[Rfam]
RNA sequence: CUGAUUAUUAGCACCAUUCAUCGAAUGGUGGGUUAGCGCGCGUCUGAUACGCAGUGACAAAAACCCGCCCCACGAGGCGGGUUUU
Numbered sequence: 001c002u003g004a005u006u007a008u009u010a011g012c013a014c015c016a017u018u019c020a021u022c023g024a025a026u027g028g029u030g031g032g033u034u035a036g037c038g039c040g041c042g043u044c045u046g047a048u049a050c051g052c053a054g055u056g057a058c059a060a061a062a063a064c065c066c067g068c069c070c071c072a073c074g075a076g077g078c079g080g081g082u083u084u085u
Stems, first nucleotide, its partner, number of pairs: 012030006061084009